[Rfam]
RNA sequence: GAAAAAAUUAUAUUGAACCUUCAUAUAUCCUCGAUAAUAUGGAUCGAGAGUCUCUACCGGGUAACCGUAAAUAACCUGACUAUGAAGGCAGAAUAAAGUUCG
Numbered sequence: 001g002a003a004a005a006a007a008u009u010a011u012a013u014u015g016a017a018c019c020u021u022c023a024u025a026u027a028u029c030c031u032c033g034a035u036a037a038u039a040u041g042g043a044u045c046g047a048g049a050g051u052c053u054c055u056a057c058c059g060g061g062u063a064a065c066c067g068u069a070a071a072u073a074a075c076c077u078g079a080c081u082a083u084g085a086a087g088g089c090a091g092a093a094u095a096a097a098g099u100u101c102g
Stems, first nucleotide, its partner, number of pairs: 018088008030048006058078005064072001